[Rfam]
RNA sequence: UGGAAUUUUUGCUCUUUUAGUAUUUGUCUAGCAGGUUUCCUUAUUAAGGAAGCCCCC
Numbered sequence: 001u002g003g004a005a006u007u008u009u010u011g012c013u014c015u016u017u018u019a020g021u022a023u024u025u026g027u028c029u030a031g032c033a034g035g036u037u038u039c040c041u042u043a044u045u046a047a048g049g050a051a052g053c054c055c056c057c
Stems, first nucleotide, its partner, number of pairs: 034054008